[Rfam]
RNA: Small nucleolar RNA Z159/U59
RNA sequence: GUCUCUGAUGAUGAUUAAAACAAUACUUUCGUUCUUCUGAAAUUAAUAUUAUGAGGAAAAAAUUUGGAGACCUGAACUGAAGAGAC
Numbered sequence: 001g002u003c004u005c006u007g008a009u010g011a012u013g014a015u016u017a018a019a020a021c022a023a024u025a026c027u028u029u030c031g032u033u034c035u036u037c038u039g040a041a042a043u044u045a046a047u048a049u050u051a052u053g054a055g056g057a058a059a060a061a062a063u064u065u066g067g068a069g070a071c072c073u074g075a076a077c078u079g080a081a082g083a084g085a086c
Base pairs, nucleotide, nucleotide: 003084004083005082006081